[Rfam]
RNA sequence: AUAAAAUUGUAGGGGGACCAGUGUUGCUGGUUGAGAUAGUAUCCGUAAGAUAUAGACCCUUUGAACCUGAUCUGGUUGAUGCCAGCGUAGGGAACAUACGAGAUUUACAU
Numbered sequence: 001a002u003a004a005a006a007u008u009g010u011a012g013g014g015g016g017a018c019c020a021g022u023g024u025u026g027c028u029g030g031u032u033g034a035g036a037u038a039g040u041a042u043c044c045g046u047a048a049g050a051u052a053u054a055g056a057c058c059c060u061u062u063g064a065a066c067c068u069g070a071u072c073u074g075g076u077u078g079a080u081g082c083c084a085g086c087g088u089a090g091g092g093a094a095c096a097u098a099c100g101a102g103a104u105u106u107a108c109a110u
Stems, first nucleotide, its partner, number of pairs: 008096003011060004017031005039053004066091004072085004

A member of the RNA family "TPP riboswitch aptamer (THI element)" from Oceanobacillus oncorhynchi, 110 nucleotides long.
The match comes from Rfam's covariance-model search (75 bits).